[Rfam]
A member of the RNA family "Small nucleolar RNA SNORA64/SNORA10 family" from Scleropages formosus, 141 nucleotides long. Rfam's curators write: This family belongs to the H/ACA class of small nucleolar RNAs (snoRNAs) which act as guides in the the modification of uridines to pseudouridines. This family includes the human snoRNAs U64 and ACA10 and mouse MBI-29. For this family Rfam cites "Nucleolar localization signals of box H/ACA small nucleolar RNAs" (Narayanan et al., EMBO J, 1999). By type it is an H/ACA-box small nucleolar RNA. Rfam 15.1 lists 703 matches to the family in 311 species.
RNA sequence: CCUCUCUCAGCUCUGGUCAGUUACACCGUCCGUUGUGGUGUAGCUGUCGUUGAUCGGGAGAGAUAGUGAACGAGUACCUGAAUGCACGGCAGGGGGACAUCGCUGCUUGUCCUCCUGUUCCCUGUCGAGGACUCGACACGU
Number, nucleotide and partner (000 for none) at each position: 001c000002c068003u000004c066005u065006c000007u063008c062009a000010g000011c060012u059013c058014u057015g000016g000017u000018c000019a045020g044021u043022u042023a041024c040025a039026c038027c037028g036029u035030c000031c000032g000033u000034u000035g029036u028037g027038g026039u025040g024041u023042a022043g021044c020045u019046g000047u000048c000049g000050u000051u000052g000053a000054u000055c000056g000057g014058g013059a012060g011061a000062g008063a007064u000065a005066g004067u000068g002069a000070a000071c000072g000073a000074g000075u000076a000077c130078c129079u128080g000081a000082a123083u000084g121085c000086a000087c000088g000089g000090c000091a116092g115093g114094g000095g112096g111097a110098c109099a108100u000101c000102g000103c000104u000105g000106c000107u000108u099109g098110u097111c096112c095113u000114c093115c092116u091117g000118u000119u000120c000121c084122c000123u082124g000125u000126c000127g000128a079129g078130g077131a000132c000133u000134c000135g000136a000137c000138a000139c000140g000141u000
Taxonomically the source falls in Scleropages (Eukaryota, Gnathostomata, Actinopteri, Teleostei).